[Rfam]
RNA: Small nucleolar RNA snoR14
RNA sequence: GUGAGGUGAUGGUAGAAUUCAUUUGUCUGUCAAUCCACUAACUCUUUUGAAUGAUGUUUAAUAUGAAUCCCAAGUCCCAACAUGUUCUGAUCAC
Numbered sequence: 001g002u003g004a005g006g007u008g009a010u011g012g013u014a015g016a017a018u019u020c021a022u023u024u025g026u027c028u029g030u031c032a033a034u035c036c037a038c039u040a041a042c043u044c045u046u047u048u049g050a051a052u053g054a055u056g057u058u059u060a061a062u063a064u065g066a067a068u069c070c071c072a073a074g075u076c077c078c079a080a081c082a083u084g085u086u087c088u089g090a091u092c093a094c
Stems, first nucleotide, its partner, number of pairs: 001094004